The record is a 124-nucleotide sequence from Saccharothrix syringae, which matches "FMN riboswitch aptamer (RFN element)" in Rfam.
RNA sequence: CAUGCGCUCCGGGGUCGGUGGAAGUCCGAACCGGCGGUGACAGCCCGCGACCCGCCCGAGGAGGGCGGUUGACCCGGUGGAACUCCGGGGCCGACGGUGAGAGUCCGGAUGGGAGGCGCGCGUG
Numbered sequence: 001c002a003u004g005c006g007c008u009c010c011g012g013g014g015u016c017g018g019u020g021g022a023a024g025u026c027c028g029a030a031c032c033g034g035c036g037g038u039g040a041c042a043g044c045c046c047g048c049g050a051c052c053c054g055c056c057c058g059a060g061g062a063g064g065g066c067g068g069u070u071g072a073c074c075c076g077g078u079g080g081a082a083c084u085c086c087g088g089g090g091c092c093g094a095c096g097g098u099g100a101g102a103g104u105c106c107g108g109a110u111g112g113g114a115g116g117c118g119c120g121c122g123u124g
Base pairs, nucleotide, nucleotide: 003122004121005120006119007118009116010115016028017027018026030104031103032093033092034048035047036046037045043091044090052068053067073089074088075087076086077085095107096106097105